Potassium channel RNA editing signal: a 114-nucleotide RNA from Ameiurus melas.
NCBI's taxonomy places the organism under Eukaryota, Clupeocephala, Otophysi, Siluriformes, Ameiurus.
Gene Ontology term of the family: adenosine to inosine editing.
From the family's description: This family represents a group of sequences related to the human potassium channel Kv1.1 hairpin element which directs the efficient modification of an adenosine to inosine by an adenosine deaminase acting on RNA (ADAR). The ADAR modification causes an isoleucine/valine recoding event which lies in the ion-conducting pore of the potassium channel. It is thought that this editing event targets the process of fast inactivation and allows a more rapid recovery from inactivation at negative potentials.
On this family, see Bhalla et al., Nat Struct Mol Biol 2004: "Control of human potassium channel inactivation by editing of a small mRNA hairpin".
RNA sequence: GUGGGAUAUGGAGACAUGUGUCCCAUUACUUUCGGUGGGAAAAUAGUCGGCACUUUAUGUGCCAUUGCCGGGGUUUUGACCAUUGCGUUGCCCGUGCCUGUCAUCGUGUCCAAC
Numbered sequence: 001g002u003g004g005g006a007u008a009u010g011g012a013g014a015c016a017u018g019u020g021u022c023c024c025a026u027u028a029c030u031u032u033c034g035g036u037g038g039g040a041a042a043a044u045a046g047u048c049g050g051c052a053c054u055u056u057a058u059g060u061g062c063c064a065u066u067g068c069c070g071g072g073g074u075u076u077u078g079a080c081c082a083u084u085g086c087g088u089u090g091c092c093c094g095u096g097c098c099u100g101u102c103a104u105c106g107u108g109u110c111c112a113a114c
Stems, first nucleotide, its partner, number of pairs: 001114002004111002007108005013102004018097004037077004049063003